RNA sequence: GACGACCGGCCGGACACGCUGUGCCCGGCCCACAAGUGGAGGCUCCGAUCUCCCACCUGACCGUCCUCCGGGACGGCGGGUCAUCCGGUCAGACGGCCACCAUCGUUCCGUACGGACGAUGGAGCCGUCCGAAGCGCGCCCCGCGGUCUCCCGCGGCGGUGCUCCGGUAGCCGUGGGAGCCCCGCCUGUGAUCGUCCGGGGCAUUUUUU
Numbered sequence: 001g002a003c004g005a006c007c008g009g010c011c012g013g014a015c016a017c018g019c020u021g022u023g024c025c026c027g028g029c030c031c032a033c034a035a036g037u038g039g040a041g042g043c044u045c046c047g048a049u050c051u052c053c054c055a056c057c058u059g060a061c062c063g064u065c066c067u068c069c070g071g072g073a074c075g076g077c078g079g080g081u082c083a084u085c086c087g088g089u090c091a092g093a094c095g096g097c098c099a100c101c102a103u104c105g106u107u108c109c110g111u112a113c114g115g116a117c118g119a120u121g122g123a124g125c126c127g128u129c130c131g132a133a134g135c136g137c138g139c140c141c142c143g144c145g146g147u148c149u150c151c152c153g154c155g156g157c158g159g160u161g162c163u164c165c166g167g168u169a170g171c172c173g174u175g176g177g178a179g180c181c182c183c184g185c186c187u188g189u190g191a192u193c194g195u196c197c198g199g200g201g202c203a204u205u206u207u208u209u
Stems, first nucleotide, its partner, number of pairs: 004090006012026002027082005033059002036056004040051002061076006092129005100122008138202006144194003152190003155186005161180005